[Rfam]
RNA sequence: ACCUUGCCAAUGCACGGGUUCCGAAUUAAGCUUGCUGCCGAAGCAUACCAUCAAAAUCGGCAUAAAAUUCGCUAUAUAAAGGAGGUGGUUUUAGUACGUAGGCGUCUCGGGACUUGUCUCGGGAUGAAUCGUGCAUGCGUAUCAUUGGGAUCAAUAAUAAAUAACAACAACAUCUGCUAAACAUAUCGAUAUAUAAAAUCCCCCGAUACGUAUCUUUGAAGAUUUCCCACCUACCUCGCUCGAUG
Numbered sequence: 001a002c003c004u005u006g007c008c009a010a011u012g013c014a015c016g017g018g019u020u021c022c023g024a025a026u027u028a029a030g031c032u033u034g035c036u037g038c039c040g041a042a043g044c045a046u047a048c049c050a051u052c053a054a055a056a057u058c059g060g061c062a063u064a065a066a067a068u069u070c071g072c073u074a075u076a077u078a079a080a081g082g083a084g085g086u087g088g089u090u091u092u093a094g095u096a097c098g099u100a101g102g103c104g105u106c107u108c109g110g111g112a113c114u115u116g117u118c119u120c121g122g123g124a125u126g127a128a129u130c131g132u133g134c135a136u137g138c139g140u141a142u143c144a145u146u147g148g149g150a151u152c153a154a155u156a157a158u159a160a161a162u163a164a165c166a167a168c169a170a171c172a173u174c175u176g177c178u179a180a181a182c183a184u185a186u187c188g189a190u191a192u193a194u195a196a197a198a199u200c201c202c203c204c205g206a207u208a209c210g211u212a213u214c215u216u217u218g219a220a221g222a223u224u225u226c227c228c229a230c231c232u233a234c235c236u237c238g239c240u241c242g243a244u245g
Base pairs, nucleotide, nucleotide: 036062037061038060039059040058041057069243070242071241081239082237083236084235085234087231088230089229094134095133096132097131098130103126104125105124106123107122108121109120110119111118112117136212137211138210139209140208141207142206143205
Dot-bracket structure: ...................................((((((...............))))))......(((.........(((((.(((....(((((....((((((((((....))))))))))...))))).((((((((.............................................................))))))))................)))..)))).).)))..